[Rfam]
RNA sequence: AAUAAACAAUUAUAUACAGUUCAAGAGCAAACACCGUAUUGAGCCAGUAUGUAUGCUCGUU
Numbered sequence: 001a002a003u004a005a006a007c008a009a010u011u012a013u014a015u016a017c018a019g020u021u022c023a024a025g026a027g028c029a030a031a032c033a034c035c036g037u038a039u040u041g042a043g044c045c046a047g048u049a050u051g052u053a054u055g056c057u058c059g060u061u
Stems, first nucleotide, its partner, number of pairs: 013051005019044006028036001
RNA: Enterovirus cis-acting replication element